The record is an 80-nucleotide sequence from Medicago truncatula, which matches "MIR5269 microRNA precursor family" in Rfam. Lineage of the source: Eukaryota > Viridiplantae > eudicotyledons > Trifolieae > Medicago. Rfam links the family to the GO terms RISC complex and miRNA-mediated post-transcriptional gene silencing.

[Rfam]
RNA sequence: UUGGGUUAAAUCAACGCGGGUCCUACAAUUUGGAAAUGGAACUCGGAUAGAAUGGUGGCACAUUCAUUGAUUUUAUCCAA
Numbered sequence: 001u002u003g004g005g006u007u008a009a010a011u012c013a014a015c016g017c018g019g020g021u022c023c024u025a026c027a028a029u030u031u032g033g034a035a036a037u038g039g040a041a042c043u044c045g046g047a048u049a050g051a052a053u054g055g056u057g058g059c060a061c062a063u064u065c066a067u068u069g070a071u072u073u074u075a076u077c078c079a080a
Stems, first nucleotide, its partner, number of pairs: 001080006008073007016065001018063001023058003026054002029051004